[Rfam]
RNA sequence: GAGUUGUGGUGUCUGGCAAGGUUAAGCACACGCGAAGCCGUAGCGAAAGCGAGUCUUAAAAGGGCGCUUAAGUCAGAUGCUGCAGACCCGAAACGAAGUGAUCUAUCCAUGAGCAGCUUGAAGCUAGUGUAAGAACUAGUGGAGGAGCGAACCCGCUAGCGUUGAAAAGCUAUGGGAUGACUUGUGGAUAGGGGUGAAAGGCCAAUCAAACUUCGUGAUAGCUGGUU
Number, nucleotide and partner (000 for none) at each position: 001g000002a000003g000004u000005u084006g083007u082008g081009g080010u079011g078012u077013c076014u075015g074016g073017c072018a000019a000020g039021g038022u037023u036024a000025a000026g033027c032028a000029c000030a000031c000032g027033c026034g000035a000036a023037g022038c021039c020040g000041u000042a000043g050044c049045g000046a000047a000048a000049g044050c043051g000052a000053g065054u064055c063056u062057u000058a000059a000060a000061a000062g056063g055064g054065c053066g000067c000068u000069u000070a000071a000072g017073u016074c015075a014076g013077a012078u011079g010080c009081u008082g007083c006084a005085g000086a000087c225088c224089c000090g222091a000092a000093a000094c215095g214096a213097a212098g211099u210100g000101a000102u000103c191104u190105a189106u188107c187108c186109a185110u184111g183112a182113g181114c179115a000116g148117c147118u146119u145120g000121a000122a000123g140124c139125u138126a137127g136128u135129g000130u000131a000132a000133g000134a000135a128136c127137u126138a125139g124140u123141g000142g000143a000144g000145g119146a118147g117148c116149g000150a000151a000152c176153c175154c174155g000156c000157u172158a171159g170160c169161g000162u000163u000164g000165a000166a000167a000168a000169g160170c159171u158172a157173u000174g154175g153176g152177a000178u000179g114180a000181c113182u112183u111184g110185u109186g108187g107188a106189u105190a104191g103192g000193g203194g202195u201196g000197a000198a000199a000200g000201g195202c194203c193204a000205a000206u000207c000208a000209a000210a099211c098212u097213u096214c095215g094216u000217g000218a000219u000220a000221g000222c090223u000224g088225g087226u000227u000
RNA: Bacterial large subunit ribosomal RNA, nucleotides 608 to 834